Nucleotides: 053
Base pairs, nucleotide, nucleotide: 002049003048004047005046006045007044008043009042010041011040012039013038014037015036016035017034018033
Number, partner (000 for none) and nucleotide at each position: 001000u002049g003048u004047g005046a006045g007044a008043a009042c010041c011040u012039u013038u014037u015036g016035a017034a018033u019000c020000a021000a022000g023000u024000a025000a026000u027000a028000u029000a030000g031000u032000a033018a034017u035016u036015c037014a038013a039012a040011a041010g042009g043008u044007u045006c046005u047004c048003a049002c050000a051000a052000a053000u
Plastid-ccsA-ndhD-1 3UTR RNA: a 53-nucleotide RNA sequence from Passiflora quadrangularis. The literature on the family includes a 2023 paper in Plant Commun by Richter et al., "Retrograde signaling in plants: A critical review focusing on the GUN pathway and beyond". Plastid-ccsA-ndhD-1 is a non-coding RNA (ncRNA) recognised in plastids. The family's RNA type in Rfam is cis-regulatory element.